[Rfam]
RNA sequence: GUUUGAAAAUGGCAAACCAGUCGAAAGGCUGGGGCGCAAAGCUUCUGGCCUAAAUCCUCACAGGAUAUGGCAGCGGGGUUGCCGGG
Numbered sequence: 001g002u003u004u005g006a007a008a009a010u011g012g013c014a015a016a017c018c019a020g021u022c023g024a025a026a027g028g029c030u031g032g033g034g035c036g037c038a039a040a041g042c043u044u045c046u047g048g049c050c051u052a053a054a055u056c057c058u059c060a061c062a063g064g065a066u067a068u069g070g071c072a073g074c075g076g077g078g079u080u081g082c083c084g085g086g
Stems, first nucleotide, its partner, number of pairs: 012037002017032006040080004045076003048071003055065004
Dot-bracket structure: ...........((...((((((....))))))...))..((((.((((((....((((...))))...)))..)))))))......
c-di-GMP-I riboswitch aptamer: an 86-nucleotide sequence from Desulforhabdus amnigena. Taxonomically the source falls in Desulforhabdus (Bacteria, Pseudomonadati, Syntrophobacteria, Syntrophobacteraceae).